[Rfam]
RNA sequence: UUAGGUGAAACACAUGUAGGUCCAUCACUUUAGAAAUGGAUAUCACAUAAAGUGGAAGAGCUCACAUGUGUUUCAUCCAA
Numbered sequence: 001u002u003a004g005g006u007g008a009a010a011c012a013c014a015u016g017u018a019g020g021u022c023c024a025u026c027a028c029u030u031u032a033g034a035a036a037u038g039g040a041u042a043u044c045a046c047a048u049a050a051a052g053u054g055g056a057a058g059a060g061c062u063c064a065c066a067u068g069u070g071u072u073u074c075a076u077c078c079a080a
Stems, first nucleotide, its partner, number of pairs: 001080002004077014023058001025056001026054007
RNA: MIR5269 microRNA precursor family